[Rfam]
Nucleotides: 070
Base pairs, nucleotide, nucleotide: 001070002069007062008061009060010059011058012057013056014055015054016053019050021048022047023046024045025044026043027042
Number, partner (000 for none) and nucleotide at each position: 001070c002069u003000a004000u005000g006000a007062u008061g009060c010059a011058u012057u013056g014055u015054a016053g017000u018000u019050g020000c021048a022047u023046u024045g025044c026043a027042u028000g029000a030000u031000c032000c033000u034000g035000c036000a037000g038000u039000c040000u041000g042027a043026u044025g045024c046023a047022g048021u049000g050019u051000g052000c053016c054015u055014g056013c057012a058011g059010u060009g061008c062007a063000g064000c065000a066000c067000u068000a069002a070001g